[Rfam]
RNA sequence: GGCAUUGAGUGUCAGCGUCAAGCCCUGGCUGGCUGACCGGCAACCCUCCGACGCGGUGGGGUGCUCCAGGUGAAAGCCCGGCGGAAUCAUCGAUGAUCCCGCAAGCGCGUGGC
Number, nucleotide and partner (000 for none) at each position: 001g078002g077003c076004a000005u000006u000007g000008a000009g038010u000011g037012u036013c035014a034015g033016c032017g000018u000019c000020a000021a030022g029023c000024c000025c000026u000027g000028g000029c022030u021031g000032g016033c015034u014035g013036a012037c011038c009039g065040g064041c063042a000043a000044c061045c060046c059047u000048c056049c055050g000051a000052c000053g000054c000055g049056g048057u000058g000059g046060g045061g044062u000063g041064c040065u039066c000067c000068a000069g000070g000071u000072g000073a000074a000075a000076g003077c002078c001079c000080g000081g102082c101083g100084g099085a000086a097087u096088c095089a094090u000091c000092g000093a000094u089095g088096a087097u086098c000099c084100c083101g082102c081103a000104a000105g000106c000107g000108c000109g000110u000111g000112g000113c000

The record is a 113-nucleotide RNA sequence from Streptomyces griseorubiginosus, which matches "SAM (S-adenosyl methionine) riboswitch aptamer" in Rfam. The family has 40 seed sequences and 2,360 matches in Rfam 15.1. The family's consensus secondary structure is taken from published work.